[Rfam]
RNA: Glycine riboswitch aptamer
Organism: Oceanicella actignis
RNA sequence: GUGACCGACUCUGGAGAGUGGCGCGCGGCGCCCGCCGAAGGGAUAGCGAUCUCAGGCGAAAGGACAGAGGGGGCGUC
Number, nucleotide and partner (000 for none) at each position: 001g000002u000003g000004a000005c000006c072007g000008a000009c069010u068011c067012u066013g065014g000015a000016g000017a000018g000019u000020g032021g031022c030023g029024c000025g000026c000027g000028g000029c023030g022031c021032c020033c000034g057035c056036c055037g053038a052039a000040g000041g051042g050043a000044u000045a000046g000047c000048g000049a000050u042051c041052u038053c037054a000055g036056g035057c034058g000059a000060a000061a000062g000063g000064a000065c013066a012067g011068a010069g009070g000071g000072g006073g000074c000075g000076u000077c000